[Rfam]
RNA sequence: AUGAAUACUUGCGAUCGAUAAACUUUCUCUACCGGUACGCAAAUGGUAGAAAUCAGCAAAAAGAAUAAUUGAAAUAAUAGCCUCCAGUGGCUUGUAUUGGGAUAAAAAAUGAGACCGUAGCGUGUUACGGU
Numbered sequence: 001a002u003g004a005a006u007a008c009u010u011g012c013g014a015u016c017g018a019u020a021a022a023c024u025u026u027c028u029c030u031a032c033c034g035g036u037a038c039g040c041a042a043a044u045g046g047u048a049g050a051a052a053u054c055a056g057c058a059a060a061a062a063g064a065a066u067a068a069u070u071g072a073a074a075u076a077a078u079a080g081c082c083u084c085c086a087g088u089g090g091c092u093u094g095u096a097u098u099g100g101g102a103u104a105a106a107a108a109a110u111g112a113g114a115c116c117g118u119a120g121c122g123u124g125u126u127a128c129g130g131u
Base pairs, nucleotide, nucleotide: 006034009031011029013027014026037125043118044117045116046115051066053064054063080103083101084100085099086098087097088096089095

This 131-nucleotide sequence from Clostridiales bacterium COT073_COT-073 belongs to the Rfam family "Streptococcus sRNA SpR18". The literature on the family includes a 2012 paper in PLoS Pathog by Mann et al., "Control of virulence by small RNAs in Streptococcus pneumoniae". NCBI's taxonomy places the organism under Bacteria, Bacillati, Bacillota, Clostridia, Eubacteriales.